[Rfam]
RNA sequence: ACUCGUCAUCUCUGUGCCUCUUUGUCUACAAUUUUGGAAAAAGUAGUGUCGCCAUUGUUUUUUUCCCAAAUGUAGACAAAGCGAUACCGUGAUGACGUUAU
Numbered sequence: 001a002c003u004c005g006u007c008a009u010c011u012c013u014g015u016g017c018c019u020c021u022u023u024g025u026c027u028a029c030a031a032u033u034u035u036g037g038a039a040a041a042a043g044u045a046g047u048g049u050c051g052c053c054a055u056u057g058u059u060u061u062u063u064u065c066c067c068a069a070a071u072g073u074a075g076a077c078a079a080a081g082c083g084a085u086a087c088c089g090u091g092a093u094g095a096c097g098u099u100a101u
Stems, first nucleotide, its partner, number of pairs: 004097007012089001014087003018083001020081010031071004036066002038063003042059007
Shown here is a 101-nucleotide RNA sequence from Arabidopsis lyrata, a member of the family "MIR158 microRNA precursor family".
On this family, see Lu et al., Genome Res 2006: "MicroRNAs and other small RNAs enriched in the Arabidopsis RNA-dependent RNA polymerase-2 mutant".
Gene Ontology terms of the family: miRNA-mediated post-transcriptional gene silencing and RISC complex.